[Rfam]
RNA: Flavo-1 RNA
Organism: Halpernia frigidisoli
RNA sequence: ACUUUGCAGCCCGACUUGAGUGGAAAUCCUUUUAUUUUUUUGUUUAAAAAAAAUAAAAGAUUGGGAACGAAAGGCGGAAGUUGCU
Numbered sequence: 001a002c003u004u005u006g007c008a009g010c011c012c013g014a015c016u017u018g019a020g021u022g023g024a025a026a027u028c029c030u031u032u033u034a035u036u037u038u039u040u041u042g043u044u045u046a047a048a049a050a051a052a053a054u055a056a057a058a059g060a061u062u063g064g065g066a067a068c069g070a071a072a073g074g075c076g077g078a079a080g081u082u083g084c085u
Base pairs, nucleotide, nucleotide: 011077012076013075015073016072020068021067025062026061027060028059031057032056033055034054035053036052037051038050039049040048041047